Rfam assigns this 126-nucleotide RNA from Vitis rotundifolia to the family "MIR845_2 microRNA precursor family".
Its family is annotated with miRNA-mediated post-transcriptional gene silencing and RISC complex in the Gene Ontology.
Taxonomically the source falls in Vitis (Eukaryota, Viridiplantae, Embryophyta, Mesangiospermae).
[Rfam]
RNA sequence: AGAACGCACAUUAAUUAUCCCUAAGGCCAUGGGAUAAACAAAAACCUUGCAAAAACAAGUAAGCACACCCUAUAAUGGUUCUAGCACGAUUACUAACCUAUGGUUCUGAUACCAGUUGUAGGACCU
Numbered sequence: 001a002g003a004a005c006g007c008a009c010a011u012u013a014a015u016u017a018u019c020c021c022u023a024a025g026g027c028c029a030u031g032g033g034a035u036a037a038a039c040a041a042a043a044a045c046c047u048u049g050c051a052a053a054a055a056c057a058a059g060u061a062a063g064c065a066c067a068c069c070c071u072a073u074a075a076u077g078g079u080u081c082u083a084g085c086a087c088g089a090u091u092a093c094u095a096a097c098c099u100a101u102g103g104u105u106c107u108g109a110u111a112c113c114a115g116u117u118g119u120a121g122g123a124c125c126u
Stems, first nucleotide, its partner, number of pairs: 009121001012118005022108002025105009048086002053080002056077002062071002